[Rfam]
RNA sequence: GGAUAGAUGAUGAGUACAAGUGUCUGAGGAUGCUAAGCAAUUCAUACAAUUAUCAAUCUGAGGUUC
Numbered sequence: 001g002g003a004u005a006g007a008u009g010a011u012g013a014g015u016a017c018a019a020g021u022g023u024c025u026g027a028g029g030a031u032g033c034u035a036a037g038c039a040a041u042u043c044a045u046a047c048a049a050u051u052a053u054c055a056a057u058c059u060g061a062g063g064u065u066c
Base pairs, nucleotide, nucleotide: 001066002065003064004063
RNA: Small nucleolar RNA SNORD109A
Organism: Cricetulus griseus